[Rfam]
RNA sequence: CUCACGGCUUCGUCAGGCGAAUCUUAUUGUUGCCGCAUUCGUGCCCUUACGUAGCCCCACUAGAAAUCGACUAUUCUAGUGUUGCCUCGACGGCCCGGCUCCUAGACCGCCUCGGACACGUCAGCCCCCCAGCCCUCCGGGUCGUAUGGUGGGCCGGGCCACUUCCCAACCGUCGAGAACAACCGCCGCCUUUCACGAGGCGGCUUUC
Numbered sequence: 001c002u003c004a005c006g007g008c009u010u011c012g013u014c015a016g017g018c019g020a021a022u023c024u025u026a027u028u029g030u031u032g033c034c035g036c037a038u039u040c041g042u043g044c045c046c047u048u049a050c051g052u053a054g055c056c057c058c059a060c061u062a063g064a065a066a067u068c069g070a071c072u073a074u075u076c077u078a079g080u081g082u083u084g085c086c087u088c089g090a091c092g093g094c095c096c097g098g099c100u101c102c103u104a105g106a107c108c109g110c111c112u113c114g115g116a117c118a119c120g121u122c123a124g125c126c127c128c129c130c131a132g133c134c135c136u137c138c139g140g141g142u143c144g145u146a147u148g149g150u151g152g153g154c155c156g157g158g159c160c161a162c163u164u165c166c167c168a169a170c171c172g173u174c175g176a177g178a179a180c181a182a183c184c185g186c187c188g189c190c191u192u193u194c195a196c197g198a199g200g201c202g203g204c205u206u207u208c
Base pairs, nucleotide, nucleotide: 035173036172037052038051041048083168084167089165090164092160093159094158095157096156097155098154099153100152101151108144109143111141112140113139114138115137124133125132185204186203187202188201189200190199191198192197

A member of the RNA family "Bradyrhizobiaceae sRNA BjrC174" from Microvirga subterranea, 208 nucleotides long. A search with the family's covariance model found it, with a score of 47 bits. A reference for the family is Madhugiri et al. (2012), "Small RNAs of the Bradyrhizobium/Rhodopseudomonas lineage and their analysis", RNA Biol. The source organism's lineage runs through Bacteria, Pseudomonadati, Pseudomonadota, Alphaproteobacteria and Microvirga.